[Rfam]
About this RNA:
mir-33 microRNA precursor family: a 70-nucleotide RNA from Holothuria leucospilota. The literature on the family includes a 2009 paper in BMC Genomics by Li et al., "Direct sequencing and expression analysis of a large number of miRNAs in Aedes aegypti and a multi-species survey of novel mosquito miRNAs". The base pairs follow the family's consensus structure, which was predicted with PFOLD. It scores 64 bits against the family's covariance model. Lineage of the source: Eukaryota > Metazoa > Bilateria > Aspidochirotida > Holothuria.
RNA sequence: UGGUCGUGCAUUGUAGUUGCAUUGCAGUUUAUAUGAAAUGAUUCUGCAGUGCUUCAACAGUGCAACACUG
Numbered sequence: 001u002g003g004u005c006g007u008g009c010a011u012u013g014u015a016g017u018u019g020c021a022u023u024g025c026a027g028u029u030u031a032u033a034u035g036a037a038a039u040g041a042u043u044c045u046g047c048a049g050u051g052c053u054u055c056a057a058c059a060g061u062g063c064a065a066c067a068c069u070g
Stems, first nucleotide, its partner, number of pairs: 001070004006066001007064008016055001019052001021050007